[Rfam]
RNA sequence: GUAUACACUAUAUUAUGUAUAAAUCUAUACACACUUCCUAUAUGUAUCCACACACAUAUAUAUAGUGUGUAUAUUAUACAUGUAUAGGUGUGUAUAU
Numbered sequence: 001g002u003a004u005a006c007a008c009u010a011u012a013u014u015a016u017g018u019a020u021a022a023a024u025c026u027a028u029a030c031a032c033a034c035u036u037c038c039u040a041u042a043u044g045u046a047u048c049c050a051c052a053c054a055c056a057u058a059u060a061u062a063u064a065g066u067g068u069g070u071a072u073a074u075u076a077u078a079c080a081u082g083u084a085u086a087g088g089u090g091u092g093u094a095u096a097u
Base pairs, nucleotide, nucleotide: 003091004090005089006088008087009086010085011084012083013082015081016080017079018078019077020076021075022074024073026071027070028069029068030067031066032065039060040059041058042057043056044055045054
RNA: mir-568 microRNA precursor family
Organism: Nannospalax galili